[Rfam]
RNA sequence: CGAAGAAGCACAGGUGAUCGCCGCCCGUCCUGCCUGAAGGCAUGAUGGGGGGAGGAAAGUCCGGGCUCCGCAGGGCGCGAUGGUUCCUAACGGGAACCGGGGGUGACCCCAGGGAAAGUGCCACAGAAAGCAAACCGCCCGCUUUGGCCCUGUGCCGAAGCAGGUAAGGGUGAAAGGGUGAGGUAAGAGCUCACCAGUGCCGGUGGUGACACCGGCAGCUCGGUAAACCCCAUCGGGAGCAAGACCGAAUAGGGGAGCGUUUGAGGGCGGCCCGUCCGAAGCUCCCGGGUCUGGUCGCUUGAGGCCGUCGGCAACGGCGGUCCUAGAUGAAUGAUCACCGCCUCGCCCCGGGUAACCGGUACGGGGAACAGAACCCGGCUUACGGGCUUCUUCGGCCA
Numbered sequence: 001c002g003a004a005g006a007a008g009c010a011c012a013g014g015u016g017a018u019c020g021c022c023g024c025c026c027g028u029c030c031u032g033c034c035u036g037a038a039g040g041c042a043u044g045a046u047g048g049g050g051g052g053a054g055g056a057a058a059g060u061c062c063g064g065g066c067u068c069c070g071c072a073g074g075g076c077g078c079g080a081u082g083g084u085u086c087c088u089a090a091c092g093g094g095a096a097c098c099g100g101g102g103g104u105g106a107c108c109c110c111a112g113g114g115a116a117a118g119u120g121c122c123a124c125a126g127a128a129a130g131c132a133a134a135c136c137g138c139c140c141g142c143u144u145u146g147g148c149c150c151u152g153u154g155c156c157g158a159a160g161c162a163g164g165u166a167a168g169g170g171u172g173a174a175a176g177g178g179u180g181a182g183g184u185a186a187g188a189g190c191u192c193a194c195c196a197g198u199g200c201c202g203g204u205g206g207u208g209a210c211a212c213c214g215g216c217a218g219c220u221c222g223g224u225a226a227a228c229c230c231c232a233u234c235g236g237g238a239g240c241a242a243g244a245c246c247g248a249a250u251a252g253g254g255g256a257g258c259g260u261u262u263g264a265g266g267g268c269g270g271c272c273c274g275u276c277c278g279a280a281g282c283u284c285c286c287g288g289g290u291c292u293g294g295u296c297g298c299u300u301g302a303g304g305c306c307g308u309c310g311g312c313a314a315c316g317g318c319g320g321u322c323c324u325a326g327a328u329g330a331a332u333g334a335u336c337a338c339c340g341c342c343u344c345g346c347c348c349c350g351g352g353u354a355a356c357c358g359g360u361a362c363g364g365g366g367a368a369c370a371g372a373a374c375c376c377g378g379c380u381u382a383c384g385g386g387c388u389u390c391u392u393c394g395g396c397c398a
Stems, first nucleotide, its partner, number of pairs: 001394009011385001013339007021052002024049006057381003061378005066239004073273004078235005083097005098112001099110004113230002118228002120224003135169002137165003141161008177195006197219001198217008243296004253286006265277004303322008
Rfam assigns this 398-nucleotide RNA sequence from Geoalkalibacter subterraneus to the family "Bacterial RNase P class A".
Taxonomically the source falls in Geoalkalibacter (Bacteria, Pseudomonadati, Thermodesulfobacteriota, Desulfuromonadia).
Rfam links the family to the GO terms dimeric ribonuclease P complex, ribonuclease P activity and tRNA processing.